[Rfam]
RNA sequence: GGACUCGGCUUGCUGAGUGCACACAGCGAGAGGCGAGGC
Numbered sequence: 001g002g003a004c005u006c007g008g009c010u011u012g013c014u015g016a017g018u019g020c021a022c023a024c025a026g027c028g029a030g031a032g033g034c035g036a037g038g039c
Base pairs, nucleotide, nucleotide: 004037005036006035007034009030010029011028012027013026014025015024